Overview: A member of the RNA family "Arthropod 7SK RNA" from Frankliniella occidentalis, 252 nucleotides long. Rfam 15.1 lists 229 matches to the family in 137 species. Lineage of the source: Eukaryota > Eumetazoa > Paraneoptera > Terebrantia > Frankliniella. Rfam classes the family as a non-coding RNA gene. Clan: 7SK clan. The family's consensus secondary structure is taken from published work.
RNA sequence: GGAAGUGUGUGUCACUUGUGAUGACACAAGCUGAACAUUGAUCCCUGAAGUAGGCCGAUCUGCUCAGUAGUCGUGUUGUCACUCUCGUCCCGGCUCGGACUCCCGUUGCCCCGCUAUUCCGGAGCGGGCCGCACGGUGGAGUCCGGGUUCGGCAGCUUGAAUCCCCGCGUUCCGCUUCGGAAUACUCGGUUCAAAAUUGGUAACUCUGCGCUUCCAUAUAACGGCACUGAGGUACAGUAUGCCAUCAUUUUC
Numbered sequence: 001g002g003a004a005g006u007g008u009g010u011g012u013c014a015c016u017u018g019u020g021a022u023g024a025c026a027c028a029a030g031c032u033g034a035a036c037a038u039u040g041a042u043c044c045c046u047g048a049a050g051u052a053g054g055c056c057g058a059u060c061u062g063c064u065c066a067g068u069a070g071u072c073g074u075g076u077u078g079u080c081a082c083u084c085u086c087g088u089c090c091c092g093g094c095u096c097g098g099a100c101u102c103c104c105g106u107u108g109c110c111c112c113g114c115u116a117u118u119c120c121g122g123a124g125c126g127g128g129c130c131g132c133a134c135g136g137u138g139g140a141g142u143c144c145g146g147g148u149u150c151g152g153c154a155g156c157u158u159g160a161a162u163c164c165c166c167g168c169g170u171u172c173c174g175c176u177u178c179g180g181a182a183u184a185c186u187c188g189g190u191u192c193a194a195a196a197u198u199g200g201u202a203a204c205u206c207u208g209c210g211c212u213u214c215c216a217u218a219u220a221a222c223g224g225c226a227c228u229g230a231g232g233u234a235c236a237g238u239a240u241g242c243c244a245u246c247a248u249u250u251u252c
Stems, first nucleotide, its partner, number of pairs: 001215008018082005031067003036062002040060004045054002223243003226238004
Dot-bracket structure: ((((((((.........(((((........(((..((..((((.((......))..))))))..)))..........))))).............................................................................................................................)))))))).......(((((((.....))))..))).........